[Rfam]
RNA sequence: AGCAUACGGGUAGCGCCAGGACUGGCGGCGGCGGUCGCCAGUUGACGAGGUGGGGGAUCUCGGAGGAUUCGGCGGGUGACCCCCGGCUGCUCACGGCCGUGAAAGGCUCAGCAAACCCCGGCGGCGACGCCGGGACAAAGGGGGCCGGGUGAGCGGG
Numbered sequence: 001a002g003c004a005u006a007c008g009g010g011u012a013g014c015g016c017c018a019g020g021a022c023u024g025g026c027g028g029c030g031g032c033g034g035u036c037g038c039c040a041g042u043u044g045a046c047g048a049g050g051u052g053g054g055g056g057a058u059c060u061c062g063g064a065g066g067a068u069u070c071g072g073c074g075g076g077u078g079a080c081c082c083c084c085g086g087c088u089g090c091u092c093a094c095g096g097c098c099g100u101g102a103a104a105g106g107c108u109c110a111g112c113a114a115a116c117c118c119c120g121g122c123g124g125c126g127a128c129g130c131c132g133g134g135a136c137a138a139a140g141g142g143g144g145c146c147g148g149g150u151g152a153g154c155g156g157g
Stems, first nucleotide, its partner, number of pairs: 020043008029034001052083004061072001063070002084099006105146005117134007

Rfam assigns this 157-nucleotide RNA sequence from Caldinitratiruptor microaerophilus to the family "glmS glucosamine-6-phosphate activated ribozyme aptamer".
The organism belongs to Caldinitratiruptor, within Bacteria.
Its family is annotated with catalytic activity and regulation of gene expression in the Gene Ontology.
It scores 72 bits against the family's covariance model.
By type it is a riboswitch.